[Rfam]
RNA sequence: UUGCCGGUCAUUGGGGAGUAGCCGCUCUUCGUUUCGAAGGGGCUUACGUCAACAUACUUGACCGGCAGGUCAUGGCGUAAGCGGUUCUAAGCCUGGCAAGACCUUUGACCACAAUGCCUCCGAUUUGGCCGGGGAGGCGUUGUGGUCAAUCGUCUGUAAACCGGCCGGAGAAC
Numbered sequence: 001u002u003g004c005c006g007g008u009c010a011u012u013g014g015g016g017a018g019u020a021g022c023c024g025c026u027c028u029u030c031g032u033u034u035c036g037a038a039g040g041g042g043c044u045u046a047c048g049u050c051a052a053c054a055u056a057c058u059u060g061a062c063c064g065g066c067a068g069g070u071c072a073u074g075g076c077g078u079a080a081g082c083g084g085u086u087c088u089a090a091g092c093c094u095g096g097c098a099a100g101a102c103c104u105u106u107g108a109c110c111a112c113a114a115u116g117c118c119u120c121c122g123a124u125u126u127g128g129c130c131g132g133g134g135a136g137g138c139g140u141u142g143u144g145g146u147c148a149a150u151c152g153u154c155u156g157u158a159a160a161c162c163g164g165c166c167g168g169a170g171a172a173c
Stems, first nucleotide, its partner, number of pairs: 026040003042082010059072005084173005
RNA: Manganese Mn2+ riboswitch aptamer (yybP-ykoY)
Organism: Nitrosomonas europaea